[Rfam]
Nucleotides: 119
Stems, first nucleotide, its partner, number of pairs: 008025005051073001053071005
Number, partner (000 for none) and nucleotide at each position: 001000c002000u003000g004000a005000g006000u007000g008025g009024c010023u011022g012021a013000a014000u015000u016000a017000g018000a019000g020000a021012u022011c023010g024009g025008c026000g027000c028000u029000c030000g031000u032000u033000u034000u035000u036000u037000u038000a039000u040000c041000u042000a043000u044000a045000c046000u047000u048000a049000a050000u051073u052000c053071u054070g055069g056068a057067g058000u059000a060000c061000u062000u063000a064000u065000g066000u067057c068056u069055c070054u071053a072000a073051g074000u075000g076000u077000u078000g079000a080000a081000g082000c083000u084000a085000a086000a087000g088000c089000u090000a091000a092000g093000a094000u095000c096000g097000u098000u099000g100000c101000a102000g103000a104000c105000u106000u107000c108000g109000g110000u111000c112000g113000u114000g115000a116000u117000g118000c119000u
The family of this 119-nucleotide RNA sequence from Affinibrenneria salicis is "Ribosomal S15 leader".
The literature on the family includes a 1996 paper in Biochimie by Benard et al., "Pseudoknot and translational control in the expression of the S15 ribosomal protein".
The source organism's lineage runs through Bacteria, Gammaproteobacteria, Enterobacterales, Pectobacteriaceae and Affinibrenneria.
The E. coli Ribosomal S15 gene 5' UTR can form two alternative structures. One that is a series of three hairpins, The other includes a pseudoknot. This structure causes translational regulation of the S15 protein. The alignment of this family contains only the final two hairpins which are conserved in other species, and also includes the complete region that forms the alternate structures.
The family's consensus secondary structure is taken from published work.
Rfam links the family to the GO term regulation of translation, ncRNA-mediated.